[Rfam]
This 71-nucleotide RNA sequence from Prevotella sp. oral taxon 299 belongs to the Rfam family "Bacteroidetes FopS (family of paralogous sRNAs)". Pairs were carried over by alignment from the consensus structure, which is taken from published work. A search with the family's covariance model found it, with a score of 69 bits. Rfam's curators write: The RNA-binding protein RbpB and BTncRNA_FopS sRNA are involved in the post-transcription regulation of polysaccharide utilisation loci (PUL). FopS sRNAs function as post-transcriptional repressors by binding to the vicinity of the start codon of the first mRNA of target PUL polycistrons, typically corresponding to the cognate SusC homolog, impeding translation of the respective glycan transporter. NCBI's taxonomy places the organism under Bacteria, Pseudomonadati, Prevotellaceae, Prevotella, Prevotella sp. oral taxon 299. Its family is annotated with sRNA-mediated gene silencing in the Gene Ontology. On this family, see Ruttiger et al., Nat Commun 2025: "The global RNA-binding protein RbpB is a regulator of polysaccharide utilization in Bacteroides thetaiotaomicron". The family has 12 seed sequences and 822 matches in Rfam 15.1. It is annotated as a small RNA.
RNA sequence: GUGUUUUUCAUGGUAUUAGAUUAUUAAGGUUAAGAAAGAUUGAUUGUCGUGAGACAAUCAAUCUUUUGCUU
Numbered sequence: 001g002u003g004u005u006u007u008u009c010a011u012g013g014u015a016u017u018a019g020a021u022u023a024u025u026a027a028g029g030u031u032a033a034g035a036a037a038g039a040u041u042g043a044u045u046g047u048c049g050u051g052a053g054a055c056a057a058u059c060a061a062u063c064u065u066u067u068g069c070u071u
Base pairs, nucleotide, nucleotide: 042059043058044057045056046055047054048053